RNA sequence: AUACAAAAAGGGAAUGAAGUUCUCCCAUGGCAAUAUUGCCCAAACCGCUUAUUAAGCUAAUGACUUCUGUGAUUUU
Numbered sequence: 001a002u003a004c005a006a007a008a009a010g011g012g013a014a015u016g017a018a019g020u021u022c023u024c025c026c027a028u029g030g031c032a033a034u035a036u037u038g039c040c041c042a043a044a045c046c047g048c049u050u051a052u053u054a055a056g057c058u059a060a061u062g063a064c065u066u067c068u069g070u071g072a073u074u075u076u
Stems, first nucleotide, its partner, number of pairs: 010026004016067006047057003
RNA: Fluoride riboswitch aptamer (crcB RNA motif)